[Rfam]
The family of this 141-nucleotide sequence from Callithrix jacchus is "U4 spliceosomal RNA".
U4 small nuclear RNA (U4 snRNA) is a component of the major U2-dependent spliceosome.
It is annotated as a spliceosomal small nuclear RNA.
RNA sequence: AGCUUUGCGCAGUGGCAGUAUCAUAGCCAAUGAGGUUUAUUUGAGGCGUGAUUAUUGCUAAUUGAAAACUUUUCCCAAUAUUCCGCCAUGAAGACUUGAAAUAUAGUUGGCACUGGCAAUUGUUGACAUUCUCUACUGAGA
Numbered sequence: 001a002g003c004u005u006u007g008c009g010c011a012g013u014g015g016c017a018g019u020a021u022c023a024u025a026g027c028c029a030a031u032g033a034g035g036u037u038u039a040u041u042u043g044a045g046g047c048g049u050g051a052u053u054a055u056u057g058c059u060a061a062u063u064g065a066a067a068a069c070u071u072u073u074c075c076c077a078a079u080a081u082u083c084c085g086c087c088a089u090g091a092a093g094a095c096u097u098g099a100a101a102u103a104u105a106g107u108u109g110g111c112a113c114u115g116g117c118a119a120u121u122g123u124u125g126a127c128a129u130u131c132u133c134u135a136c137u138g139a140g141a
Stems, first nucleotide, its partner, number of pairs: 020052005026047003034042002085117003089112002093108004130141004